[Rfam]
RNA sequence: AUUUGUGGUGGUUUCUGUGUGUGGCAGAUCUGUGAGAGUAUCAGAACUGCCCCAGAACUACCACAGACAUCAGAAAGGAGGAGGCUGUGCUGAGAACUUCAAGCUUUCAGUUUCCAGCAAUUUGUUCAGCUCCUACAGAA
Numbered sequence: 001a002u003u004u005g006u007g008g009u010g011g012u013u014u015c016u017g018u019g020u021g022u023g024g025c026a027g028a029u030c031u032g033u034g035a036g037a038g039u040a041u042c043a044g045a046a047c048u049g050c051c052c053c054a055g056a057a058c059u060a061c062c063a064c065a066g067a068c069a070u071c072a073g074a075a076a077g078g079a080g081g082a083g084g085c086u087g088u089g090c091u092g093a094g095a096a097c098u099u100c101a102a103g104c105u106u107u108c109a110g111u112u113u114c115c116a117g118c119a120a121u122u123u124g125u126u127c128a129g130c131u132c133c134u135a136c137a138g139a140a
Stems, first nucleotide, its partner, number of pairs: 005064007023051003027047001029045004077133004100124004
Small nucleolar RNA SNORA12: a 140-nucleotide RNA sequence from Neodrepanis coruscans. Rfam 15.1 lists 571 matches to the family in 378 species. A search with the family's covariance model found it, with a score of 59 bits. Rfam's curators write: U108 belongs to the H/ACA family of snoRNAs. The sequence is predicted to guide the pseudouridylation of the U372 residue in the 28S rRNA subunit. However it has not been reported as a pseudouridylation site. The base pairs follow the family's consensus structure, which was predicted with RNAalifold. Taxonomically the source falls in Neodrepanis (Eukaryota, Gnathostomata, Passeriformes, Philepittidae).